[Rfam]
RNA sequence: AGUUGCUCAUUCAAUUUAUUAUGUAGGUCCAAAAAUAGUUGGGUACAUACCACAUAAAGCAAGAAUGAUGCCAAAGUAAGGUGCCUACCGUCCAACAGCACAGAUACUCGCCUUCGGGCCUUAUCAAACACAGGGCGACACGUUGAGUGAGGCACCACCUA
Dot-bracket structure: ....((((((((......((((((.(((....................))))))))).....)))))).))........(((((((..(((((.........((((...............)))).......))))).(((.....)))))))))).....

The record is a 161-nucleotide sequence from Providencia heimbachae, which matches "Glm Y RNA activator of glmS mRNA" in Rfam.
The match comes from Rfam's covariance-model search (127 bits).
The source organism's lineage runs through Bacteria, Pseudomonadati, Gammaproteobacteria, Providencia and Providencia heimbachae.
On this family, see Rivas et al., Curr Biol 2001: "Computational identification of noncoding RNAs in E. coli by comparative genomics".
The family's consensus secondary structure is taken from published work.